Description: A member of the RNA family "Iron response element I" from Eptatretus burgeri, 34 nucleotides long. The match comes from Rfam's covariance-model search (38 bits). Rfam classes the family as a cis-regulatory element.

RNA sequence: UGUUCCUGUUUCAACAGUGCUUGAAUGGAACAGG
Number, nucleotide and partner (000 for none) at each position: 001u032002g031003u030004u029005c028006c027007u000008g026009u000010u025011u024012c023013a022014a021015c019016a000017g000018u000019g015020c000021u014022u013023g012024a011025a010026u008027g006028g005029a004030a003031c002032a001033g000034g000